[Rfam]
Nucleotides: 193
Stems, first nucleotide, its partner, number of pairs: 008027003013022003048067006068083006113148006126137004152185005157179005
Number, partner (000 for none) and nucleotide at each position: 001000u002000u003000a004000g005000c006000u007000c008027u009026c010025u011000u012000u013022g014021c015020c016000u017000u018000u019000u020015g021014g022013c023000u024000u025010a026009g027008a028000u029000c030000a031000a032000g033000u034000g035000u036000a037000g038000u039000a040000u041000c042000u043000g044000u045000u046000c047000u048067u049066u050065u051064c052063a053062g054000u055000u056000u057000a058000a059000u060000c061000u062053c063052u064051g065050a066049a067048a068083g069082a070081u071080g072079u073078c074000u075000a076000a077000g078073g079072a080071c081070a082069u083068c084000a085000a086000u087000c088000g089000u090000g091000a092000u093000u094000a095000u096000u097000c098000c099000u100000a101000u102000u103000u104000u105000u106000g107000g108000c109000c110000a111000g112000g113148g114147g115146a116145c117144g118143g119000c120000u121000u122000c123000c124000u125000c126137u127136a128135u129134g130000c131000u132000u133000g134129c135128a136127u137126a138000u139000g140000a141000u142000c143118c144117c145116g146115u147114c148113c149000a150000c151000a152185g153184u154183g155182u156181c157179c158178c159177u160176a161175g162000u163000a164000u165000u166000a167000c168000a169000c170000u171000g172000c173000c174000u175161c176160u177159a178158g179157g180000u181156g182155a183154c184153g185152c186000g187000a188000a189000c190000g191000c192000g193000c